[Rfam]
RNA: Group II catalytic intron D1-D4-1
RNA sequence: GAACAGUGGAUGAGUGUCCGCACCGCCACGGCCCUCAGACGUCAGCCGAGGCCAUAGUACUCCGACACGCCGUUGGGGAAAGGGC
Numbered sequence: 001g002a003a004c005a006g007u008g009g010a011u012g013a014g015u016g017u018c019c020g021c022a023c024c025g026c027c028a029c030g031g032c033c034c035u036c037a038g039a040c041g042u043c044a045g046c047c048g049a050g051g052c053c054a055u056a057g058u059a060c061u062c063c064g065a066c067a068c069g070c071c072g073u074u075g076g077g078g079a080a081a082g083g084g085c
Base pairs, nucleotide, nucleotide: 001029006021007020008019009018010017011016042049043048051085052084053083060078061077062076063075064074065073